Annotation: The record is a 103-nucleotide RNA sequence from Virgibacillus sp. SK37, which matches "SAM riboswitch aptamer (S box leader)" in Rfam. Pairs were carried over by alignment from the consensus structure, which is taken from published work.
RNA sequence: UUCUUAUUCAGAGAGGUGGAGGGAAUUGGCCCUUUGAUACCUCGGCAGCGGACUUUUAUAGUACUGUGCCAAAUCCAACAAGCAACAGCUUGGAAAAUAAGAA
Numbered sequence: 001u002u003c004u005u006a007u008u009c010a011g012a013g014a015g016g017u018g019g020a021g022g023g024a025a026u027u028g029g030c031c032c033u034u035u036g037a038u039a040c041c042u043c044g045g046c047a048g049c050g051g052a053c054u055u056u057u058a059u060a061g062u063a064c065u066g067u068g069c070c071a072a073a074u075c076c077a078a079c080a081a082g083c084a085a086c087a088g089c090u091u092g093g094a095a096a097a098u099a100a101g102a103a
Stems, first nucleotide, its partner, number of pairs: 001103008013043005021032003026078004044070004049066002052062003074095001079092005